[Rfam]
RNA sequence: CGAGUAAGCCAGAUGAUCGCUGCUACACUAUUAUGUGUAGGAGAGGAAAGUCCGAGCUCCAUAGGGCAGGGUGCUGGGUAACUCCCAGUGGAGGCGACUCUAAGGAAAGUGCAACAGAGAUAUACCGCCAUAAACUUUGUUUAUGGUAAGGGUGGAAAGGUGAGGUAAGAGCUUACCAGCGCAAUGGCGACUUUGCGGCUAUGUAAACCCCAUCUGGAGCAAGAUUGAAUAGAGGGACAUUAAGGAGCGGCCCGUUCCGUCCCCGGGUAAAAUCGCUUGAGUCUAAUGGUAACAUUAGGCCUAGAUAGAUGAUCAUCAAAUACAGAACUCGGCUUAUAGACUUAUCUCGUAUA
Numbered sequence: 001c002g003a004g005u006a007a008g009c010c011a012g013a014u015g016a017u018c019g020c021u022g023c024u025a026c027a028c029u030a031u032u033a034u035g036u037g038u039a040g041g042a043g044a045g046g047a048a049a050g051u052c053c054g055a056g057c058u059c060c061a062u063a064g065g066g067c068a069g070g071g072u073g074c075u076g077g078g079u080a081a082c083u084c085c086c087a088g089u090g091g092a093g094g095c096g097a098c099u100c101u102a103a104g105g106a107a108a109g110u111g112c113a114a115c116a117g118a119g120a121u122a123u124a125c126c127g128c129c130a131u132a133a134a135c136u137u138u139g140u141u142u143a144u145g146g147u148a149a150g151g152g153u154g155g156a157a158a159g160g161u162g163a164g165g166u167a168a169g170a171g172c173u174u175a176c177c178a179g180c181g182c183a184a185u186g187g188c189g190a191c192u193u194u195g196c197g198g199c200u201a202u203g204u205a206a207a208c209c210c211c212a213u214c215u216g217g218a219g220c221a222a223g224a225u226u227g228a229a230u231a232g233a234g235g236g237a238c239a240u241u242a243a244g245g246a247g248c249g250g251c252c253c254g255u256u257c258c259g260u261c262c263c264c265g266g267g268u269a270a271a272a273u274c275g276c277u278u279g280a281g282u283c284u285a286a287u288g289g290u291a292a293c294a295u296u297a298g299g300c301c302u303a304g305a306u307a308g309a310u311g312a313u314c315a316u317c318a319a320a321u322a323c324a325g326a327a328c329u330c331g332g333c334u335u336a337u338a339g340a341c342u343u344a345u346c347u348c349g350u351a352u353a
Stems, first nucleotide, its partner, number of pairs: 001349004005344004010339001011337001012317007020043002023040006048335003052332005057219004064253004069215005074088005089103001090101004104210002109208002111204003125151002127147009159177006179199001180197005186191001223274004234263005244258005281300008
Rfam assigns this 353-nucleotide RNA from Clostridium botulinum to the family "Bacterial RNase P class A". The sequence is in the family's curated seed alignment. Lineage of the source: Bacteria > Bacillati > Eubacteriales > Clostridium botulinum > Clostridium botulinum C.